The record is a 155-nucleotide sequence from Agrobacterium tumefaciens, which matches "Rhizobiales sRNA Atu_C3" in Rfam.
[Rfam]
RNA sequence: UCAACAAGGGGUGCGGAUCUCAGUCCACAGAUUAUCUCGAUGAUCGUAUCGACGAUAUUCACCUUCUUGCUGGCGGGCCUUUCGAGGUCCGUUUUCUCAGGUCAUUGAGCUUUUUGUGCCGUUUCGGUCUCGGAACGGGCUGGAGCUUUUUGUCC
Numbered sequence: 001u002c003a004a005c006a007a008g009g010g011g012u013g014c015g016g017a018u019c020u021c022a023g024u025c026c027a028c029a030g031a032u033u034a035u036c037u038c039g040a041u042g043a044u045c046g047u048a049u050c051g052a053c054g055a056u057a058u059u060c061a062c063c064u065u066c067u068u069g070c071u072g073g074c075g076g077g078c079c080u081u082u083c084g085a086g087g088u089c090c091g092u093u094u095u096c097u098c099a100g101g102u103c104a105u106u107g108a109g110c111u112u113u114u115u116g117u118g119c120c121g122u123u124u125c126g127g128u129c130u131c132g133g134a135a136c137g138g139g140c141u142g143g144a145g146c147u148u149u150u151u152g153u154c155c
Stems, first nucleotide, its partner, number of pairs: 005069005010063002012029002015026003030060002033057004037052006072093009100155002103152002107148007117139001119138008

For this family Rfam cites "Deep sequencing uncovers numerous small RNAs on all four replicons of the plant pathogen Agrobacterium tumefaciens" (Wilms et al., RNA Biol, 2012). The source organism's lineage runs through Bacteria, Alphaproteobacteria, Hyphomicrobiales, Rhizobiaceae and Agrobacterium tumefaciens complex.